The record is a 363-nucleotide RNA from Candidatus Rhodobacter oscarellae, which matches "Bacterial RNase P class A" in Rfam. Pairs were carried over by alignment from the consensus structure, which is taken from published work. The organism belongs to Rhodobacter, within Bacteria. It scores 286 bits against the family's covariance model.
[Rfam]
RNA sequence: GCGGAUGGCUGGGCGGUCGCGGGGGCAACCUCGAGGAAAGUCCGGACUCCACAAGGCAACGGUGCCAGGUAACGCCUGGGCGGGGCAACCCGACGGACAGCGCCACAGAGAACAGACCGCCCCGGGCGCGCUCGGGGUCAGGGUGAAACGGUGGGGUAAGAGCCCACCGCGGCGGCGGCAACGUCGCUGGCAUGGCAAGCCCCACCGGGAGCAAUGCCGAAUAGGGACCCCGCAUGGGCGGCUUUGGCCUGGGGUCCGGGUAGGCAGCUAGAGGGCGCCGGGCGACCGGCGCUUUAGAUGAAUGGCCGUCGGCAAGUGGCGACACUUGCGGGACAGAAUCCGGCUUAUAGGCUGUCCGCGCUU
Numbered sequence: 001g002c003g004g005a006u007g008g009c010u011g012g013g014c015g016g017u018c019g020c021g022g023g024g025g026c027a028a029c030c031u032c033g034a035g036g037a038a039a040g041u042c043c044g045g046a047c048u049c050c051a052c053a054a055g056g057c058a059a060c061g062g063u064g065c066c067a068g069g070u071a072a073c074g075c076c077u078g079g080g081c082g083g084g085g086c087a088a089c090c091c092g093a094c095g096g097a098c099a100g101c102g103c104c105a106c107a108g109a110g111a112a113c114a115g116a117c118c119g120c121c122c123c124g125g126g127c128g129c130g131c132u133c134g135g136g137g138u139c140a141g142g143g144u145g146a147a148a149c150g151g152u153g154g155g156g157u158a159a160g161a162g163c164c165c166a167c168c169g170c171g172g173c174g175g176c177g178g179c180a181a182c183g184u185c186g187c188u189g190g191c192a193u194g195g196c197a198a199g200c201c202c203c204a205c206c207g208g209g210a211g212c213a214a215u216g217c218c219g220a221a222u223a224g225g226g227a228c229c230c231c232g233c234a235u236g237g238g239c240g241g242c243u244u245u246g247g248c249c250u251g252g253g254g255u256c257c258g259g260g261u262a263g264g265c266a267g268c269u270a271g272a273g274g275g276c277g278c279c280g281g282g283c284g285a286c287c288g289g290c291g292c293u294u295u296a297g298a299u300g301a302a303u304g305g306c307c308g309u310c311g312g313c314a315a316g317u318g319g320c321g322a323c324a325c326u327u328g329c330g331g332g333a334c335a336g337a338a339u340c341c342g343g344c345u346u347a348u349a350g351g352c353u354g355u356c357c358g359c360g361c362u363u
Stems, first nucleotide, its partner, number of pairs: 001359010011348001012310007020033005038346003042343005047211004055245002060207005065079005080094001081092004095202002100200002102196003117142002119138008150168006169191001170189008215266004225257006236250004274293008